[Rfam]
RNA sequence: GGACUGCCUUUGGCUUAGCAGUGUCUUCAAAUCAAGCCACUUCACUUGCCAACCACUCUUGCUUGUGAGGGUGGCUUGAGAUCCAUGGGUGCCCUCUAGUCCUUUA
Numbered sequence: 001g002g003a004c005u006g007c008c009u010u011u012g013g014c015u016u017a018g019c020a021g022u023g024u025c026u027u028c029a030a031a032u033c034a035a036g037c038c039a040c041u042u043c044a045c046u047u048g049c050c051a052a053c054c055a056c057u058c059u060u061g062c063u064u065g066u067g068a069g070g071g072u073g074g075c076u077u078g079a080g081a082u083c084c085a086u087g088g089g090u091g092c093c094c095u096c097u098a099g100u101c102c103u104u105u106a
Base pairs, nucleotide, nucleotide: 002101003100004099005098006097013090014089015088016087018086021083026080027079028078029077030076
Annotation:
The family of this 106-nucleotide sequence from Myotis myotis is "Vault RNA". It scores 35 bits against the family's covariance model. Rfam's curators write: This family of RNAs are found as part of the enigmatic vault ribonucleoprotein complex. The complex consists of a major vault protein (MVP), two minor vault proteins (VPARP and TEP1), and several small untranslated RNA molecules.